[Rfam]
RNA sequence: UCGCGCCUGCGGUGGAUCAAGCCCUGCCAUGAAGAUCCCGGAAGUAUUCCGGGACGGUCUUGCAGGCGGCCGGCACGGGUACAGAUCCGGUAACACAAGCAAUGCUUGUUUCAAAGCUGUUUC
Dot-bracket structure: ....(((((((.[[[.[[..[[[[[[[[...........................[[[[.)))))))]]]]]]]].]]]]...]].]]].....((((((...))))))..............
The family of this 123-nucleotide RNA is "RT-5 RNA". Rfam classes the family as a small RNA.